[Rfam]
RNA sequence: UGGUAGAUGCACCCUGAUUAUUUACCCUGGUCUUCGGAUCAGGGUUUUUUAU
Numbered sequence: 001u002g003g004u005a006g007a008u009g010c011a012c013c014c015u016g017a018u019u020a021u022u023u024a025c026c027c028u029g030g031u032c033u034u035c036g037g038a039u040c041a042g043g044g045u046u047u048u049u050u051a052u
Stems, first nucleotide, its partner, number of pairs: 002013003025044008
RNA: Nitrogen stress-induced RNA 1